This 71-nucleotide RNA from Chanos chanos belongs to the Rfam family "mir-124 microRNA precursor family".

[Rfam]
RNA sequence: CGCUCUGCGUGUUCACAGCGGACCUUGAUUUAAUGAUGUUCAAUUAAGGCACGCGGUGAAUGCCAAGAGAG
Numbered sequence: 001c002g003c004u005c006u007g008c009g010u011g012u013u014c015a016c017a018g019c020g021g022a023c024c025u026u027g028a029u030u031u032a033a034u035g036a037u038g039u040u041c042a043a044u045u046a047a048g049g050c051a052c053g054c055g056g057u058g059a060a061u062g063c064c065a066a067g068a069g070a071g
Stems, first nucleotide, its partner, number of pairs: 003069004009063008018054003023049008
It scores 80 bits against the family's covariance model. On this family, see Lagos-Quintana et al., Curr Biol 2002: "Identification of tissue-specific microRNAs from mouse".